Bacterial RNase P class A: a 405-nucleotide RNA from Cryobacterium roopkundense. Rfam classes the family as a ribozyme. Pairs were carried over by alignment from the consensus structure, which is taken from published work. Its family is annotated with ribonuclease P activity, tRNA processing and dimeric ribonuclease P complex in the Gene Ontology.
RNA sequence: UGGGUCGGCAAGACGGUCGCGUCAUCUGAGUGUUUCCGGGAUUCGUUUCGGGGACAGCGGGUGCCGAGGAACGUCCGGGCUCCACAGAGCAGGAUGGUGGGUAACACCCACCCGGGGUAACCCGCGAGACAGUGCCACAGAAAGUAGACCGCCACCGGGCCGGGCCUUCGGGUUUGGGUUGGAGGUAAGGGUGAAACGGUGGUGUAAGAGACCACCAGAGGCCAGGGUGACCUGGUCGGCUAGGUAAACCUCGUCCGGAGCAAGGUCAGACAGAAAGCGCCAAGGCUGCUCGCCGAGCUUUCGGGUAGACCGCUAGAGGGCUGCGGCAACGUAGUCCCAAGAUAGAUGGCCGUCCACGGCACUUCGGUGCCGAGACAGAACCCGGCGUAUCAGCCGGCCCAUUCC
Numbered sequence: 001u002g003g004g005u006c007g008g009c010a011a012g013a014c015g016g017u018c019g020c021g022u023c024a025u026c027u028g029a030g031u032g033u034u035u036c037c038g039g040g041a042u043u044c045g046u047u048u049c050g051g052g053g054a055c056a057g058c059g060g061g062u063g064c065c066g067a068g069g070a071a072c073g074u075c076c077g078g079g080c081u082c083c084a085c086a087g088a089g090c091a092g093g094a095u096g097g098u099g100g101g102u103a104a105c106a107c108c109c110a111c112c113c114g115g116g117g118u119a120a121c122c123c124g125c126g127a128g129a130c131a132g133u134g135c136c137a138c139a140g141a142a143a144g145u146a147g148a149c150c151g152c153c154a155c156c157g158g159g160c161c162g163g164g165c166c167u168u169c170g171g172g173u174u175u176g177g178g179u180u181g182g183a184g185g186u187a188a189g190g191g192u193g194a195a196a197c198g199g200u201g202g203u204g205u206a207a208g209a210g211a212c213c214a215c216c217a218g219a220g221g222c223c224a225g226g227g228u229g230a231c232c233u234g235g236u237c238g239g240c241u242a243g244g245u246a247a248a249c250c251u252c253g254u255c256c257g258g259a260g261c262a263a264g265g266u267c268a269g270a271c272a273g274a275a276a277g278c279g280c281c282a283a284g285g286c287u288g289c290u291c292g293c294c295g296a297g298c299u300u301u302c303g304g305g306u307a308g309a310c311c312g313c314u315a316g317a318g319g320g321c322u323g324c325g326g327c328a329a330c331g332u333a334g335u336c337c338c339a340a341g342a343u344a345g346a347u348g349g350c351c352g353u354c355c356a357c358g359g360c361a362c363u364u365c366g367g368u369g370c371c372g373a374g375a376c377a378g379a380a381c382c383c384g385g386c387g388u389a390u391c392a393g394c395c396g397g398c399c400c401a402u403u404c405c
Base pairs, nucleotide, nucleotide: 001401002400003399004398005397006396007395008394009393011390012354013353014352015351016350017349018348020066021065023063024062025061026060027059028058071388072387073386075385076384077383078382079381080260081259082258083257087291088290089289090288092256093255094254095253096252097111098110099109100108101107112126113124114123115122116121127251128250132249133248134245135244136243149190150189151186152185153184155182156181157180158179198216199215200214201213202212203211218240220237221236222235223234224233225232226231264311265310266309267308273302274301275300276299277298278297284294285293286292318337319336320335321334322333323332324331325330